U5 spliceosomal RNA: a 119-nucleotide sequence from Histoplasma mississippiense. Rfam links the family to the GO terms U5 snRNP and spliceosomal tri-snRNP complex assembly. The base pairs follow the family's consensus structure, which is taken from published work.
RNA sequence: AUGGAGUGGAACAGGCUAGCUCAGAAUCCAUUUCUUGCCUUUUACCAGAGAUGGCCGUGGCUCUGUCCAAAAUACUCCAAUACUCGAAUCUUUGGACACUUUCCUAUUCGACAAUAGUU
Numbered sequence: 001a002u003g004g005a006g007u008g009g010a011a012c013a014g015g016c017u018a019g020c021u022c023a024g025a026a027u028c029c030a031u032u033u034c035u036u037g038c039c040u041u042u043u044a045c046c047a048g049a050g051a052u053g054g055c056c057g058u059g060g061c062u063c064u065g066u067c068c069a070a071a072a073u074a075c076u077c078c079a080a081u082a083c084u085c086g087a088a089u090c091u092u093u094g095g096a097c098a099c100u101u102u103c104c105u106a107u108u109c110g111a112c113a114a115u116a117g118u119u
Base pairs, nucleotide, nucleotide: 003078004077005076006075009068011066012065013064014063015062017060019058028054029053030052031051032050033049034048035047096119098118099117100116102114